[Rfam]
Source information: A member of the RNA family "Small nucleolar RNA snoR60" from Momordica charantia, 71 nucleotides long. Its Rfam clan is "SNORD101 clan". The organism belongs to Momordica, within Eukaryota.
RNA sequence: UGGCAUAUGAUGAAUUUCUCGGAUUCCGUUCAAGACUUCUUGAAUGGUGUAAGUCCUGAGUUUCAGAUGCU
Number, nucleotide and partner (000 for none) at each position: 001u000002g071003g070004c069005a068006u000007a000008u000009g000010a000011u000012g000013a000014a000015u000016u000017u000018c000019u000020c000021g000022g000023a000024u000025u000026c000027c000028g000029u000030u000031c000032a000033a000034g000035a000036c000037u000038u000039c000040u000041u000042g000043a000044a000045u000046g000047g000048u000049g000050u000051a000052a000053g000054u000055c000056c000057u000058g000059a000060g000061u000062u000063u000064c000065a000066g000067a000068u005069g004070c003071u002